RNA sequence: UGCGAUGAGUUGACACCAAUCAGGUAACUUCGGUUAUCUUGCUGCGGCAACAUAGUGAUUGGGACAAUUAGGUAGGGCAUGGUACGCCACCUUGGUGAGUGUACACUACGAGAUGUAGUUGUUUGAUUCCCUCUGUAUUGUGGAAUUC
Numbered sequence: 001u002g003c004g005a006u007g008a009g010u011u012g013a014c015a016c017c018a019a020u021c022a023g024g025u026a027a028c029u030u031c032g033g034u035u036a037u038c039u040u041g042c043u044g045c046g047g048c049a050a051c052a053u054a055g056u057g058a059u060u061g062g063g064a065c066a067a068u069u070a071g072g073u074a075g076g077g078c079a080u081g082g083u084a085c086g087c088c089a090c091c092u093u094g095g096u097g098a099g100u101g102u103a104c105a106c107u108a109c110g111a112g113a114u115g116u117a118g119u120u121g122u123u124u125g126a127u128u129c130c131c132u133c134u135g136u137a138u139u140g141u142g143g144a145a146u147u148c
Base pairs, nucleotide, nucleotide: 018060019059020058021057022056023038024037025036026035027034028033039050040049041048042047076123077122078121079120105119106118107117108116109115135148137146138145139144
RNA: Enterococcus sRNA 68 (Lacto-3 RNA)